RNA sequence: GUACGUGCUCCGGGGUCGGUGUAAUUCCGAGCCGGCGGUGAAAGCCCGCGAACCGAGUUUCUGCACUGUGUGCAGGGUCUUGGCCGAUCUGGUGAAAUUCCAGAGCCGACGGUGAAAGUCCGGAUGGGAGGCAGUGCGUGC
Dot-bracket structure: ..((((((((......(((.......))).[[((((((.....[[))))...(((((.....................)))))....(((((.......)))))]])).(((.....]]))).......)..)))))))..
Numbered sequence: 001g002u003a004c005g006u007g008c009u010c011c012g013g014g015g016u017c018g019g020u021g022u023a024a025u026u027c028c029g030a031g032c033c034g035g036c037g038g039u040g041a042a043a044g045c046c047c048g049c050g051a052a053c054c055g056a057g058u059u060u061c062u063g064c065a066c067u068g069u070g071u072g073c074a075g076g077g078u079c080u081u082g083g084c085c086g087a088u089c090u091g092g093u094g095a096a097a098u099u100c101c102a103g104a105g106c107c108g109a110c111g112g113u114g115a116a117a118g119u120c121c122g123g124a125u126g127g128g129a130g131g132c133a134g135u136g137c138g139u140g141c
Stems, first nucleotide, its partner, number of pairs: 003139007010130001017029003031119002033108002035049004044106002053083005088104005110122003
The record is a 141-nucleotide RNA sequence from Dermatophilus congolensis, which matches "FMN riboswitch aptamer (RFN element)" in Rfam.